[Rfam]
RNA sequence: GGCCCAGCUCUUGCUAGGAAUAUUCCGGUAGCCAACGGCGGUUGCCCCAACCCCCAAUACCGACAAAGACGUCGC
Number, nucleotide and partner (000 for none) at each position: 001g000002g000003c000004c000005c000006a000007g000008c000009u000010c000011u000012u000013g000014c000015u000016a000017g000018g000019a000020a000021u000022a000023u000024u000025c000026c000027g046028g045029u044030a043031g042032c041033c040034a000035a000036c000037g000038g000039c000040g033041g032042u031043u030044g029045c028046c027047c000048c000049a000050a000051c000052c000053c000054c000055c000056a000057a000058u000059a000060c000061c000062g000063a000064c000065a000066a000067a000068g000069a000070c000071g000072u000073c000074g000075c000
narK RNA: a 75-nucleotide RNA from Pseudomonas bharatica. The source organism's lineage runs through Bacteria, Pseudomonadota, Gammaproteobacteria, Pseudomonadaceae and Pseudomonas bharatica. Pairs were carried over by alignment from the consensus structure, which is taken from published work. It is annotated as a cis-regulatory element.